[Rfam]
RNA sequence: UCUGUUAAGAAGAAACCAGCCGUUUCUCACCUUACAGCAAUGCUAGUAAGGCUGUGUAUUUAAGUACACAUAGUAUGUUGUAUAUUAGGAACGGCUUUGCCGUUCUUUUUUUAUGUA
Numbered sequence: 001u002c003u004g005u006u007a008a009g010a011a012g013a014a015a016c017c018a019g020c021c022g023u024u025u026c027u028c029a030c031c032u033u034a035c036a037g038c039a040a041u042g043c044u045a046g047u048a049a050g051g052c053u054g055u056g057u058a059u060u061u062a063a064g065u066a067c068a069c070a071u072a073g074u075a076u077g078u079u080g081u082a083u084a085u086u087a088g089g090a091a092c093g094g095c096u097u098u099g100c101c102g103u104u105c106u107u108u109u110u111u112u113a114u115g116u117a
Stems, first nucleotide, its partner, number of pairs: 011027006030051002034047002037043002090104006

Rfam assigns this 117-nucleotide RNA from Clostridium liquoris to the family "Ribosomal protein L20 leader". This family is a putative r-protein leader autoregulatory structure found in B. subtilis and other low-GC Gram-positive bacteria. The organism belongs to Clostridium, within Bacteria. Pairs were carried over by alignment from the consensus structure, which was predicted with CMfinder. By type it is a cis-regulatory leader. A reference for the family is Zengel and Lindahl (1994), "Diverse mechanisms for regulating ribosomal protein synthesis in Escherichia coli", Prog Nucleic Acid Res Mol Biol.